[Rfam]
Nucleotides: 067
Stems, first nucleotide, its partner, number of pairs: 004064007013055005019049010
Number, partner (000 for none) and nucleotide at each position: 001000a002000u003000g004064u005063a006062c007061a008060c009059u010058g011000a012000a013055u014054g015053g016052c017051c018000a019049g020048a021047u022046u023045a024044u025043u026042a027041u028040g029000a030000u031000c032000u033000c034000u035000g036000a037000a038000c039000a040028c041027a042026u043025a044024a045023u046022a047021a048020u049019c050000u051017g052016g053015c054014c055013a056000c057000g058010c059009a060008g061007u062006g063005u064004a065000u066000a067000u
Background: The family of this 67-nucleotide RNA from Cnephaeus nilssonii is "mir-9256 microRNA precursor family". Gene Ontology terms of the family: miRNA-mediated post-transcriptional gene silencing and RISC complex. Taxonomically the source falls in Cnephaeus (Eukaryota, Gnathostomata, Euteleostomi, Boreoeutheria). The match comes from Rfam's covariance-model search (81 bits).